Shown here is a 93-nucleotide RNA sequence from Bacterioplanes sanyensis, a member of the family "t44 RNA".

RNA sequence: GUCGGUCAUGAGGGAACACACACACACUUCGAAAAGCGCUGUCGGGGUGCUGCUCUGAUGAGCGGUCGGCAACGUGAAGUGUGGAGGCCUAAC
Number, nucleotide and partner (000 for none) at each position: 001g000002u000003c000004g000005g000006u000007c000008a000009u000010g000011a000012g000013g000014g000015a000016a000017c000018a000019c000020a000021c000022a000023c083024a082025c081026a080027c079028u078029u077030c076031g000032a000033a000034a000035a000036g075037c074038g073039c000040u071041g070042u069043c068044g067045g000046g000047g000048u000049g066050c065051u064052g063053c062054u000055c000056u000057g000058a000059u000060g000061a000062g053063c052064g051065g050066u049067c044068g043069g042070c041071a040072a000073c038074g037075u036076g030077a029078a028079g027080u026081g025082u024083g023084g000085a000086g000087g000088c000089c000090u000091a000092a000093c000